[Rfam]
RNA sequence: GAUACUCCCGUCCAGCCUAACGUCCGAGCGUUGAAGCGGUUUGCCACCGUGAUCCGUCGCAGGCAAUGGGGGCGGUUGCGUGAGAACCACGCGAGGGGUGAGAUUCCCCGUGG
Numbered sequence: 001g002a003u004a005c006u007c008c009c010g011u012c013c014a015g016c017c018u019a020a021c022g023u024c025c026g027a028g029c030g031u032u033g034a035a036g037c038g039g040u041u042u043g044c045c046a047c048c049g050u051g052a053u054c055c056g057u058c059g060c061a062g063g064c065a066a067u068g069g070g071g072g073c074g075g076u077u078g079c080g081u082g083a084g085a086a087c088c089a090c091g092c093g094a095g096g097g098g099u100g101a102g103a104u105u106c107c108c109c110g111u112g113g
Stems, first nucleotide, its partner, number of pairs: 007110001008075006076094003080090003095109003
pemK RNA: a 113-nucleotide RNA from Bittarella massiliensis. NCBI's taxonomy places the organism under Bacteria, Bacillota, Clostridia, Oscillospiraceae, Bittarella (ex Durand et al. 2017). The family's RNA type in Rfam is cis-regulatory element. It scores 38 bits against the family's covariance model.